[Rfam]
Nucleotides: 189
Stems, first nucleotide, its partner, number of pairs: 008020003041060006062078007106141008120131004145181005151173002154170003
Number, partner (000 for none) and nucleotide at each position: 001000a002000u003000a004000c005000c006000u007000u008020u009019c010018u011000u012000u013000g014000g015000c016000u017000a018010a019009g020008a021000u022000c023000a024000a025000g026000u027000g028000u029000a030000g031000u032000a033000u034000c035000u036000g037000u038000u039000u040000u041060u042059a043058u044057c045056a046055g047000u048000u049000u050000a051000a052000u053000a054000u055046c056045u057044g058043a059042u060041a061000u062078g063077u064076g065075g066074g067073c068072c069000a070000a071000u072068g073067g074066c075065c076064c077063a078062c079000a080000c081000g082000a083000u084000a085000u086000u087000a088000a089000a090000u091000u092000a093000a094000u095000u096000u097000u098000u099000u100000a101000a102000g103000g104000g105000u106141g107140a108139g109138g110137g111136c112135c113134u114000a115000u116000c117000u118000c119000a120131g121130u122129a123128g124000c125000u126000u127000g128123c129122u130121g131120c132000u133000g134113g135112g136111g137110c138109u139108c140107u141106c142000g143000a144000u145181u146180g147179u148178c149177g150000c151173c152172c153000a154170u155169g156168c157000g158000u159000u160000g161000c162000a163000c164000u165000a166000u167000u168156g169155c170154a171000c172152g173151g174000g175000c176000c177149u178148g179147g180146c181145g182000c183000a184000u185000c186000c187000c188000a189000c
This 189-nucleotide sequence from Lotus japonicus belongs to the Rfam family "U2 spliceosomal RNA".
It is one of the family's seed sequences.
The family is grouped with related families in Rfam's "U2 clan".
Its family is annotated with U2 snRNP, pre-mRNA branch point binding and mRNA branch site recognition in the Gene Ontology.
Rfam classes the family as a spliceosomal small nuclear RNA.
The base pairs follow the family's consensus structure, which is taken from published work.
On this family, see Berglund et al., RNA 2001: "Crystal structure of a model branchpoint-U2 snRNA duplex containing bulged adenosines".
Rfam describes the family as follows. U2 is a small nuclear RNA (snRNA) component of the spliceosome (involved in pre-mRNA splicing).